This 121-nucleotide RNA from Serratia rubidaea belongs to the Rfam family "RtT RNA". The family has 57 seed sequences and 651 matches in Rfam 15.1.
RNA sequence: AUAUUCCCCGCUCCGGGAGGGUGAGAACCCUCGACAGGGUUCGACAAAACGCGCAGCGUUUUGCACAGCCGAAGGCUGCCCGCAGGGUGAGCGUAGCGAAUGUAUCCCUCCCUCACCGUCC
Numbered sequence: 001a002u003a004u005u006c007c008c009c010g011c012u013c014c015g016g017g018a019g020g021g022u023g024a025g026a027a028c029c030c031u032c033g034a035c036a037g038g039g040u041u042c043g044a045c046a047a048a049a050c051g052c053g054c055a056g057c058g059u060u061u062u063g064c065a066c067a068g069c070c071g072a073a074g075g076c077u078g079c080c081c082g083c084a085g086g087g088u089g090a091g092c093g094u095a096g097c098g099a100a101u102g103u104a105u106c107c108c109u110c111c112c113u114c115a116c117c118g119u120c121c
Base pairs, nucleotide, nucleotide: 015112016111017110018109019108020107021106022104032089033088035086040084042082043081047060048059067077068076069075070074
Source information: The literature on the family includes a 1991 paper in Nucleic Acids Res by Bosl and Kersten, "A novel RNA product of the tyrT operon of Escherichia coli". This family represents a bacterial cis-regulatory element known as RtT RNA. The exact function of RtT is unknown although it is thought that it may be involved in changing the cellular response in relation to amino acid starvation. The organism belongs to Serratia, within Bacteria.